[Rfam]
RNA sequence: CCAUCAUCGACCCCCACCCAGGGGCAGGAGCGGAGGAACCAACUCUGCACGAAGACCGUCCGCGGUCAUGCGUGCUCGGGGUGAAGCCCGCAAGGGCAGGGCCAUCCUUCGGCCCUAAUCCGACAGCUCACUUCGCAGGCGUGGAAGGGAAACCAC
Numbered sequence: 001c002c003a004u005c006a007u008c009g010a011c012c013c014c015c016a017c018c019c020a021g022g023g024g025c026a027g028g029a030g031c032g033g034a035g036g037a038a039c040c041a042a043c044u045c046u047g048c049a050c051g052a053a054g055a056c057c058g059u060c061c062g063c064g065g066u067c068a069u070g071c072g073u074g075c076u077c078g079g080g081g082u083g084a085a086g087c088c089c090g091c092a093a094g095g096g097c098a099g100g101g102c103c104a105u106c107c108u109u110c111g112g113c114c115c116u117a118a119u120c121c122g123a124c125a126g127c128u129c130a131c132u133u134c135g136c137a138g139g140c141g142u143g144g145a146a147g148g149g150a151a152a153c154c155a156c
Stems, first nucleotide, its partner, number of pairs: 001028002030136006040078001079121003087096003099115004
Dot-bracket structure: ((........................)).((((((....(.....................................)(((.....(((....)))..((((.........))))...))).........))))))....................

A member of the RNA family "c-di-AMP riboswitch aptamer (ydaO/yuaA leader)" from Mumia sp. ZJ1417, 156 nucleotides long. Rfam's curators write: This family represents a conserved RNA structure found upstream of the ydaO and yuaA genes in Bacillus subtilis and related genes in other bacteria. Pairs were carried over by alignment from the consensus structure. The organism belongs to Mumia, within Bacteria.